[Rfam]
RNA sequence: CCGUUCUCGUGUUAUUUACUGGACUUAACCGUAGUCCAGCGAUUGUCAAAGAGAACGCAUAUUAAAGCAACUAAUCACUCCAUAAUGAUGGGUCCAUUUUAACCAGGGCCUCCUCAUUACUAAAUGUUUGCUACAUCU
Numbered sequence: 001c002c003g004u005u006c007u008c009g010u011g012u013u014a015u016u017u018a019c020u021g022g023a024c025u026u027a028a029c030c031g032u033a034g035u036c037c038a039g040c041g042a043u044u045g046u047c048a049a050a051g052a053g054a055a056c057g058c059a060u061a062u063u064a065a066a067g068c069a070a071c072u073a074a075u076c077a078c079u080c081c082a083u084a085a086u087g088a089u090g091g092g093u094c095c096a097u098u099u100u101a102a103c104c105a106g107g108g109c110c111u112c113c114u115c116a117u118u119a120c121u122a123a124a125u126g127u128u129u130g131c132u133a134c135a136u137c138u
Stems, first nucleotide, its partner, number of pairs: 002057006010048002016042002019039004084118005091110004
RNA: Small nucleolar RNA psi18S-1377
Organism: Drosophila gunungcola